[Rfam]
RNA sequence: GUCCCGGACAAGACGUUAAACUGUCUGCUGCUGCAUAUUGCACCGAGUGAUCAACGGUGGCUCAACGGUCUGCGACGGCACAACAGAAUACAACGGCUGUCAUUUGAGCUGACGGCUGCAAUCCUGAAUGGAGUAAUCCAUCUGGAAUGCGGUCUGAUUCGUCAUGCCCAUUUGCCGGUAGAGA
Numbered sequence: 001g002u003c004c005c006g007g008a009c010a011a012g013a014c015g016u017u018a019a020a021c022u023g024u025c026u027g028c029u030g031c032u033g034c035a036u037a038u039u040g041c042a043c044c045g046a047g048u049g050a051u052c053a054a055c056g057g058u059g060g061c062u063c064a065a066c067g068g069u070c071u072g073c074g075a076c077g078g079c080a081c082a083a084c085a086g087a088a089u090a091c092a093a094c095g096g097c098u099g100u101c102a103u104u105u106g107a108g109c110u111g112a113c114g115g116c117u118g119c120a121a122u123c124c125u126g127a128a129u130g131g132a133g134u135a136a137u138c139c140a141u142c143u144g145g146a147a148u149g150c151g152g153u154c155u156g157a158u159u160c161g162u163c164a165u166g167c168c169c170a171u172u173u174g175c176c177g178g179u180a181g182a183g184a
Base pairs, nucleotide, nucleotide: 028078029077030076032074034072035071037069038068039067040066041059042058043057044056045055060109061108062107063106064105065104095179097177099175100174115153116152117151118150119149128141129140130139131138132137
The record is a 184-nucleotide RNA, which matches "DUF2800 RNA" in Rfam.